RNA sequence: CCUGAUGUUCCGUCAUCAGUAGCCUAUCGGUGCAUGCGUGGUUGGCAACGACUGCGUGUGAAGCCACCGAGACAAUGUAGGUCGGCGAAAGCCAGGUGGAGACCGCGAGGUCGAAACCGCAUCUGCGAGCGCCAACGCGGAUGGAUCG
Numbered sequence: 001c002c003u004g005a006u007g008u009u010c011c012g013u014c015a016u017c018a019g020u021a022g023c024c025u026a027u028c029g030g031u032g033c034a035u036g037c038g039u040g041g042u043u044g045g046c047a048a049c050g051a052c053u054g055c056g057u058g059u060g061a062a063g064c065c066a067c068c069g070a071g072a073c074a075a076u077g078u079a080g081g082u083c084g085g086c087g088a089a090a091g092c093c094a095g096g097u098g099g100a101g102a103c104c105g106c107g108a109g110g111u112c113g114a115a116a117c118c119g120c121a122u123c124u125g126c127g128a129g130c131g132c133c134a135a136c137g138c139g140g141a142u143g144g145a146u147c148g
Base pairs, nucleotide, nucleotide: 002019003018004017005016006015007014028069029068030067031066032065033060034059035058036057037056038055039054040053041052042051043050044049084093085092086091095118096117097116103110104109122141123140124139125138126137127136
The family of this 148-nucleotide sequence from Xylella fastidiosa is "Group II catalytic intron D1-D4-7".
NCBI's taxonomy places the organism under Bacteria, Pseudomonadota, Gammaproteobacteria, Lysobacterales, Xylella fastidiosa.
From the family's description: Group II introns are found in rRNA, tRNA and mRNA of organelles in fungi, plants and protists, and also in mRNA in bacteria.